A member of the RNA family "Small nucleolar RNA R21" from Capsicum annuum, 80 nucleotides long. The source organism's lineage runs through Eukaryota, Streptophyta, eudicotyledons, Pentapetalae and Capsicum. The match comes from Rfam's covariance-model search (60 bits). The base pairs follow the family's consensus structure, which was predicted with PFOLD.
RNA sequence: AAUCCCUGUGAUGCACUAACUAAAUAAUUUAAAAGUAGUGGCCUGAUGACCAUUGAUGAAAAGCUUUGUUCUGAGGGAUU
Numbered sequence: 001a002a003u004c005c006c007u008g009u010g011a012u013g014c015a016c017u018a019a020c021u022a023a024a025u026a027a028u029u030u031a032a033a034a035g036u037a038g039u040g041g042c043c044u045g046a047u048g049a050c051c052a053u054u055g056a057u058g059a060a061a062a063g064c065u066u067u068g069u070u071c072u073g074a075g076g077g078a079u080u
Stems, first nucleotide, its partner, number of pairs: 001080006